The record is a 62-nucleotide sequence from Sarcophilus harrisii, which matches "mir-7386 microRNA precursor family" in Rfam.
Nucleotides: 062
Base pairs, nucleotide, nucleotide: 002059004057005056006055007054008053009052010051011050012049019043023042024041025040026039027038029037
Number, partner (000 for none) and nucleotide at each position: 001000a002059u003000u004057u005056g006055g007054a008053u009052a010051a011050g012049g013000c014000a015000c016000u017000u018000g019043a020000u021000u022000u023042u024041u025040u026039u027038g028000u029037g030000a031000a032000u033000u034000u035000u036000g037029c038027c039026a040025a041024a042023a043019u044000a045000a046000g047000u048000a049012c050011c051010u052009u053008a054007u055006c056005c057004a058000u059002g060000g061000a062000g
The match comes from Rfam's covariance-model search (62 bits).
The organism belongs to Sarcophilus, within Eukaryota.
The family's consensus secondary structure was predicted with RNAalifold.